[Rfam]
RNA: SAM riboswitch aptamer (S box leader)
Organism: Priestia megaterium
RNA sequence: UCCUUAUCAAGAGAGGUGGAGGGACUGGCCCUGUGAAACCCGGCAACCGCUGUCUAUGACAGAAUGGUGCCAAAUCCUUAAGAACAGUAUGUUCUUGAAGAUGAGGA
Numbered sequence: 001u002c003c004u005u006a007u008c009a010a011g012a013g014a015g016g017u018g019g020a021g022g023g024a025c026u027g028g029c030c031c032u033g034u035g036a037a038a039c040c041c042g043g044c045a046a047c048c049g050c051u052g053u054c055u056a057u058g059a060c061a062g063a064a065u066g067g068u069g070c071c072a073a074a075u076c077c078u079u080a081a082g083a084a085c086a087g088u089a090u091g092u093u094c095u096u097g098a099a100g101a102u103g104a105g106g107a
Stems, first nucleotide, its partner, number of pairs: 001107008013041001015040003021031003027077002042071004047067002050062003075099001080096006